The record is a 78-nucleotide sequence from Burkholderiales bacterium PBB4, which matches "int-alpA RNA" in Rfam. The family's consensus secondary structure is taken from published work. A search with the family's covariance model found it, with a score of 53 bits. The organism belongs to Burkholderiales, within Bacteria. Rfam classes the family as a small RNA.

RNA sequence: GCCACGCCUAGCCCGCGGCUGAUCCCCGAGGGCGAAAACCGGUUCCCCUUCACCGGCUGGCAUGGCACCCAACGAAGG
Numbered sequence: 001g002c003c004a005c006g007c008c009u010a011g012c013c014c015g016c017g018g019c020u021g022a023u024c025c026c027c028g029a030g031g032g033c034g035a036a037a038a039c040c041g042g043u044u045c046c047c048c049u050u051c052a053c054c055g056g057c058u059g060g061c062a063u064g065g066c067a068c069c070c071a072a073c074g075a076a077g078g
Stems, first nucleotide, its partner, number of pairs: 001066004006061003011033004039056005046078002049075002